RNA sequence: UGACGGGGGCCCGCACAAGCGGUGGAGUAUGUGGCUUAAUUCGAUGCAACGCGAAGAACCUUACCUGGCCUUGACAUGCACUGGACCGCACCUGAAAGGGUGCUUUCCUUCGGGACCGGUGCACAGGUGCUGCAUGGCUGUCGUCAGCUCGUGUCGUGAGAUGUUGCGUUAAGUCGCGCAACGAGCGCAACCCCUGUCCUUAGUUGCCAUCAUUAAGUUGGGCACUUUAAGGAGACAAACUCUCUCUGAGAGUGGGAAGGUGGGGAUGACGUCAAGUCAGGAUGGCCCUUACGGCCAGGGCUGCACACGUACUACAAUGCCCGGUACAGAGGGAUGCAAUACCGCGAGGUGGAGCUAAUCCUCAAAACCGGGCCCAGUUCGGAUUGUAGUCUGCAACUCGACUACAUGAAGUUGGAAUCGCUAGUAAUGGCGCAUCAGCUACGGCGCCGUGAAUACGUUCCCGGGCCUUGUACACACCGCCCGUCACAUCAUGAAAGCCGGUUUUGCCCAAAGUGCGUUAGCCAACCAGCAAUGGAGGCGGCGCCCUAAGGUGAGGCUGGUGAUUGGGAUGAAGUCGUAACAAGG
Numbered sequence: 001u002g003a004c005g006g007g008g009g010c011c012c013g014c015a016c017a018a019g020c021g022g023u024g025g026a027g028u029a030u031g032u033g034g035c036u037u038a039a040u041u042c043g044a045u046g047c048a049a050c051g052c053g054a055a056g057a058a059c060c061u062u063a064c065c066u067g068g069c070c071u072u073g074a075c076a077u078g079c080a081c082u083g084g085a086c087c088g089c090a091c092c093u094g095a096a097a098g099g100g101u102g103c104u105u106u107c108c109u110u111c112g113g114g115a116c117c118g119g120u121g122c123a124c125a126g127g128u129g130c131u132g133c134a135u136g137g138c139u140g141u142c143g144u145c146a147g148c149u150c151g152u153g154u155c156g157u158g159a160g161a162u163g164u165u166g167c168g169u170u171a172a173g174u175c176g177c178g179c180a181a182c183g184a185g186c187g188c189a190a191c192c193c194c195u196g197u198c199c200u201u202a203g204u205u206g207c208c209a210u211c212a213u214u215a216a217g218u219u220g221g222g223c224a225c226u227u228u229a230a231g232g233a234g235a236c237a238a239a240c241u242c243u244c245u246c247u248g249a250g251a252g253u254g255g256g257a258a259g260g261u262g263g264g265g266a267u268g269a270c271g272u273c274a275a276g277u278c279a280g281g282a283u284g285g286c287c288c289u290u291a292c293g294g295c296c297a298g299g300g301c302u303g304c305a306c307a308c309g310u311a312c313u314a315c316a317a318u319g320c321c322c323g324g325u326a327c328a329g330a331g332g333g334a335u336g337c338a339a340u341a342c343c344g345c346g347a348g349g350u351g352g353a354g355c356u357a358a359u360c361c362u363c364a365a366a367a368c369c370g371g372g373c374c375c376a377g378u379u380c381g382g383a384u385u386g387u388a389g390u391c392u393g394c395a396a397c398u399c400g401a402c403u404a405c406a407u408g409a410a411g412u413u414g415g416a417a418u419c420g421c422u423a424g425u426a427a428u429g430g431c432g433c434a435u436c437a438g439c440u441a442c443g444g445c446g447c448c449g450u451g452a453a454u455a456c457g458u459u460c461c462c463g464g465g466c467c468u469u470g471u472a473c474a475c476a477c478c479g480c481c482c483g484u485c486a487c488a489u490c491a492u493g494a495a496a497g498c499c500g501g502u503u504u505u506g507c508c509c510a511a512a513g514u515g516c517g518u519u520a521g522c523c524a525a526c527c528a529g530c531a532a533u534g535g536a537g538g539c540g541g542c543g544c545c546c547u548a549a550g551g552u553g554a555g556g557c558u559g560g561u562g563a564u565u566g567g568g569a570u571g572a573a574g575u576c577g578u579a580a581c582a583a584g585g
Stems, first nucleotide, its partner, number of pairs: 001474002003471003007468007015458002019421005024315001026313008034304002040055004064299007077123002080120005088103006106115003126288002129286004135282001137277003140273001142271002147186006153162003165178004192265004197233007207222002211220002236256001239253005319373007331362003336355002341350003380411001385406007427450007477584001479581001482577002487571004492566003497561012513546001515544004521539003526535002
This 585-nucleotide part of an RNA from Opitutaceae bacterium TAV5 belongs to the Rfam family "Bacterial small subunit ribosomal RNA". It scores 1555 bits against the family's covariance model. Its Rfam clan is "SSU clan". Taxonomically the source falls in Opitutaceae (Bacteria, Verrucomicrobiota, Opitutia, Opitutales).